[Rfam]
RNA sequence: UGGCGCCCAACGUGGGGCCUGGAUACUGGGGACAAUGUGAGUGACACGACGGAGGAAAAAGGGGUGCACACUCUCUCAAAUAAUUCGGAGACGCCGCGGAAGCCUGCCACGACCGAGCCAAAGGUAAGUUGGUCGUUCAAUCAUGGGGCAAGAAUUAAGUCAGCAUCAGAUUUGUGUGAUACAGUUAAGAGAAGCUCUACAGGCAAGAGGAGUAAAGGUUAAAACUGAGGACUUAUUUCAUUUCUUUGAUUUUGUAAAGGACAUUUCUCCCU
Numbered sequence: 001u002g003g004c005g006c007c008c009a010a011c012g013u014g015g016g017g018c019c020u021g022g023a024u025a026c027u028g029g030g031g032a033c034a035a036u037g038u039g040a041g042u043g044a045c046a047c048g049a050c051g052g053a054g055g056a057a058a059a060a061g062g063g064g065u066g067c068a069c070a071c072u073c074u075c076u077c078a079a080a081u082a083a084u085u086c087g088g089a090g091a092c093g094c095c096g097c098g099g100a101a102g103c104c105u106g107c108c109a110c111g112a113c114c115g116a117g118c119c120a121a122a123g124g125u126a127a128g129u130u131g132g133u134c135g136u137u138c139a140a141u142c143a144u145g146g147g148g149c150a151a152g153a154a155u156u157a158a159g160u161c162a163g164c165a166u167c168a169g170a171u172u173u174g175u176g177u178g179a180u181a182c183a184g185u186u187a188a189g190a191g192a193a194g195c196u197c198u199a200c201a202g203g204c205a206a207g208a209g210g211a212g213u214a215a216a217g218g219u220u221a222a223a224a225c226u227g228a229g230g231a232c233u234u235a236u237u238u239c240a241u242u243u244c245u246u247u248g249a250u251u252u253u254g255u256a257a258a259g260g261a262c263a264u265u266u267c268u269c270c271c272u
Stems, first nucleotide, its partner, number of pairs: 006031003012026003036048003084122002092115002095111002098108002129151003134148001136147004156199002159195002207247006216234005257272001259270003

This 272-nucleotide RNA from Nannospalax galili belongs to the Rfam family "Mason-Pfizer monkey virus packaging signal". Rfam 15.1 lists 2,921 matches to the family in 53 species. The base pairs follow the family's consensus structure, which was predicted with PFOLD. This family represents a group of sequences that are related to the Mason-Pfizer monkey virus (MPMV) packaging signal. The packaging signal is located in the 5' UTR and is required for specific RNA encapsidation. The organism belongs to Nannospalax, within Eukaryota. A reference for the family is Harrison et al. (1995), "Secondary structure model of the Mason-Pfizer monkey virus 5' leader sequence: identification of a structural motif common to a variety of retroviruses", J Virol.